[Rfam]
RNA sequence: AAAAUAAAGGAACAAUAACCAAUUUCUUAUUCUAUCAAGAGUGUUGGUUAUUGCUCCUUUAU
Dot-bracket structure: .....((((((.(((((...((.(((((........)))))..))...))))).))))))..
Numbered sequence: 001a002a003a004a005u006a007a008a009g010g011a012a013c014a015a016u017a018a019c020c021a022a023u024u025u026c027u028u029a030u031u032c033u034a035u036c037a038a039g040a041g042u043g044u045u046g047g048u049u050a051u052u053g054c055u056c057c058u059u060u061a062u
Stems, first nucleotide, its partner, number of pairs: 006060006013053005021045002024041005
The record is a 62-nucleotide sequence from Eugenia uniflora, which matches "Plastid-psbA-4 3UTR RNA" in Rfam. By type it is a cis-regulatory element. The sequence is in the family's curated seed alignment. Plastid psbA-4 is a non-coding RNA (ncRNA) present in plastids. Lineage of the source: Eukaryota > Streptophytina > Embryophyta > Myrteae > Eugenia. Clan: Plastid-psbA 3UTR RNA clan.